[Rfam]
RNA sequence: GGGCUCUCUAGGGUUGCGCGCCCCGAAAAGCGGGUGACCCUCGCCCGCCUGGGAGCCCGGUCUUUCUUAAACG
Numbered sequence: 001g002g003g004c005u006c007u008c009u010a011g012g013g014u015u016g017c018g019c020g021c022c023c024c025g026a027a028a029a030g031c032g033g034g035u036g037a038c039c040c041u042c043g044c045c046c047g048c049c050u051g052g053g054a055g056c057c058c059g060g061u062c063u064u065u066c067u068u069a070a071a072c073g
Stems, first nucleotide, its partner, number of pairs: 001058008011024003030048005038073001041070001043068001